[Rfam]
RNA sequence: CCUUCGCUGAUGAGUAACCUGAUGACUUUCGUUCUUCUGAGUUUGCUGAAGCCACUAUUGAUGCUCUGAGAAGG
Numbered sequence: 001c002c003u004u005c006g007c008u009g010a011u012g013a014g015u016a017a018c019c020u021g022a023u024g025a026c027u028u029u030c031g032u033u034c035u036u037c038u039g040a041g042u043u044u045g046c047u048g049a050a051g052c053c054a055c056u057a058u059u060g061a062u063g064c065u066c067u068g069a070g071a072a073g074g
Stems, first nucleotide, its partner, number of pairs: 001074003005070001